[Rfam]
RNA sequence: GGGCAGGAUAGGUGAAGUUAGCUAACCGGCGGAGCCGAUUAACUAUCUUCACUUCCCCUUAUUCGCCCCGGAGGCGCUCAACGGGUAAUCCUGCUCUGCGAGGCU
Numbered sequence: 001g002g003g004c005a006g007g008a009u010a011g012g013u014g015a016a017g018u019u020a021g022c023u024a025a026c027c028g029g030c031g032g033a034g035c036c037g038a039u040u041a042a043c044u045a046u047c048u049u050c051a052c053u054u055c056c057c058c059u060u061a062u063u064c065g066c067c068c069c070g071g072a073g074g075c076g077c078u079c080a081a082c083g084g085g086u087a088a089u090c091c092u093g094c095u096c097u098g099c100g101a102g103g104c105u
Stems, first nucleotide, its partner, number of pairs: 001096009012052006019045003024040002027037002030034001056085003065077002068074002
Dot-bracket structure: (((((((((..((((((.(((..((.((.(...).)).))..))).))))))...(((......((.((...)).)).....)))..))))))))).........